[Rfam]
RNA: Small nucleolar RNA SNORD112
Organism: Trichechus manatus
RNA sequence: GGGACCAAUGACGAGGGAGUGUUUAUGAACAAAGAAUCAUGAUUAAUUCAGUUCUGCGCCAAAUACUGAGGUCCACU
Numbered sequence: 001g002g003g004a005c006c007a008a009u010g011a012c013g014a015g016g017g018a019g020u021g022u023u024u025a026u027g028a029a030c031a032a033a034g035a036a037u038c039a040u041g042a043u044u045a046a047u048u049c050a051g052u053u054c055u056g057c058g059c060c061a062a063a064u065a066c067u068g069a070g071g072u073c074c075a076c077u
Stems, first nucleotide, its partner, number of pairs: 002074005